[Rfam]
RNA sequence: AUCUUUUGAUGAACUUCUUCUGGCCUCGUUUGUCGUAAUUGGCAUAGUCUUUUCUUGCCAACCAUUCUGUUAUAUAUCACAACCAUAGUCACUUGAU
Numbered sequence: 001a002u003c004u005u006u007u008g009a010u011g012a013a014c015u016u017c018u019u020c021u022g023g024c025c026u027c028g029u030u031u032g033u034c035g036u037a038a039u040u041g042g043c044a045u046a047g048u049c050u051u052u053u054c055u056u057g058c059c060a061a062c063c064a065u066u067c068u069g070u071u072a073u074a075u076a077u078c079a080c081a082a083c084c085a086u087a088g089u090c091a092c093u094u095g096a097u
Stems, first nucleotide, its partner, number of pairs: 001097003044056001046051001
RNA: Small nucleolar RNA Z43